[Rfam]
RNA: Small nucleolar RNA SNORA71
RNA sequence: CCCUGUAUUUGAAAGUGAGUGUGGGCUGCUGGUGCCCUGGUCAUUGAUGCUGCUGGGAGAGGAUGCUGAAAGCCUUUCCCCGUGUUUGGAGGAUCUACACUUGUCCUUGCCAAACGCUGGUGCUUUUUAAUA
Numbered sequence: 001c002c003c004u005g006u007a008u009u010u011g012a013a014a015g016u017g018a019g020u021g022u023g024g025g026c027u028g029c030u031g032g033u034g035c036c037c038u039g040g041u042c043a044u045u046g047a048u049g050c051u052g053c054u055g056g057g058a059g060a061g062g063a064u065g066c067u068g069a070a071a072g073c074c075u076u077u078c079c080c081c082g083u084g085u086u087u088g089g090a091g092g093a094u095c096u097a098c099a100c101u102u103g104u105c106c107u108u109g110c111c112a113a114a115c116g117c118u119g120g121u122g123c124u125u126u127u128u129a130a131u132a
Stems, first nucleotide, its partner, number of pairs: 001057003005053003009049001014045005020039002023037004068127006084115005090108003